[Rfam]
RNA sequence: UGCAAAUGAUGCUUUUUCUCACGAUGGUCUUCCAAGCUCAGGAGGCUCUGACGACAAUGCCUUUCGGCAAAUGCUGAUGCAGUGUG
Numbered sequence: 001u002g003c004a005a006a007u008g009a010u011g012c013u014u015u016u017u018c019u020c021a022c023g024a025u026g027g028u029c030u031u032c033c034a035a036g037c038u039c040a041g042g043a044g045g046c047u048c049u050g051a052c053g054a055c056a057a058u059g060c061c062u063u064u065c066g067g068c069a070a071a072u073g074c075u076g077a078u079g080c081a082g083u084g085u086g
Base pairs, nucleotide, nucleotide: 001081002080003079004078

Shown here is an 86-nucleotide RNA sequence from Cyprinodon variegatus, a member of the family "Small nucleolar RNA SNORD35".
Taxonomically the source falls in Cyprinodon (Eukaryota, Osteoglossocephalai, Euteleosteomorpha, Acanthomorphata).
The base pairs follow the family's consensus structure, which was predicted with PFOLD.
By type it is a C/D-box small nucleolar RNA.
The family has 8 seed sequences and 1,842 matches in Rfam 15.1.
About the family: U35 is a C/D box snoRNA located in intron 6 of ribosomal protein L13A and intron 3 of ribosomal protein S11 in humans and at homologous positions in mouse and chicken ribosomal protein genes. U35 guides the methylation of 2'-O-ribose sites in 28S rRNA.
Its Rfam clan is "SNORD35 clan".